[Rfam]
RNA sequence: UGCGAUGAGUCGAGAGGUCUGGUAGCAACCCAAAUAGCUACCAUAAGACAUUUCGAAUGUGGGGCACAAAACUCACCGGAUUGUGAGGUGCCCGGAAAUAGUCGGAGUGGACACUGG
Number, nucleotide and partner (000 for none) at each position: 001u000002g000003c000004g000005a000006u000007g000008a000009g000010u000011c000012g000013a000014g000015a000016g000017g049018u048019c047020u046021g042022g041023u040024a039025g038026c037027a000028a000029c000030c000031c000032a000033a000034a000035u000036a000037g026038c025039u024040a023041c022042c021043a000044u000045a000046a020047g019048a018049c017050a000051u000052u000053u000054c000055g000056a000057a000058u000059g000060u000061g000062g000063g092064g091065c090066a089067c088068a000069a000070a000071a000072c087073u086074c085075a084076c083077c000078g000079g000080a000081u000082u000083g076084u075085g074086a073087g072088g067089u066090g065091c064092c063093c000094g000095g000096a000097a000098a000099u000100a000101g000102u117103c116104g115105g114106a000107g000108u000109g000110g000111a000112c000113a000114c105115u104116g103117g102
About this RNA
This 117-nucleotide RNA belongs to the Rfam family "Enterococcus sRNA 68 (Lacto-3 RNA)". For this family Rfam cites "Whole-genome mapping of 5' RNA ends in bacteria by tagged sequencing: a comprehensive view in Enterococcus faecalis" (Innocenti et al., RNA, 2015). The family's consensus secondary structure is taken from published work.